Rfam assigns this 91-nucleotide sequence from Candidatus Fervidibacter japonicus to the family "Selenocysteine transfer RNA". The base pairs follow the family's consensus structure, which is taken from published work. A search with the family's covariance model found it, with a score of 56 bits. The organism belongs to Fervidibacter, within Bacteria.
[Rfam]
RNA sequence: GGCGGGGAAGGUGCUGGUGCGCCCCUCGGGUUGCAAACCCGACGGCGGAACGCAACAAGUGUUCCGGCUGGGUUCAAUUCCCAGCCCCGCC
Number, nucleotide and partner (000 for none) at each position: 001g091002g090003c089004g088005g087006g086007g085008a000009a000010g023011g022012u021013g020014c019015u000016g000017g000018u000019g014020c013021g012022c011023c010024c000025c044026u042027c041028g040029g039030g038031u000032u000033g000034c000035a000036a000037a000038c030039c029040c028041g027042a026043c000044g025045g000046c066047g065048g064049a063050a062051c000052g000053c000054a000055a000056c000057a000058a000059g000060u000061g000062u050063u049064c048065c047066g046067g000068c000069u083070g082071g081072g080073u000074u000075c000076a000077a000078u000079u000080c072081c071082c070083a069084g000085c007086c006087c005088c004089g003090c002091c001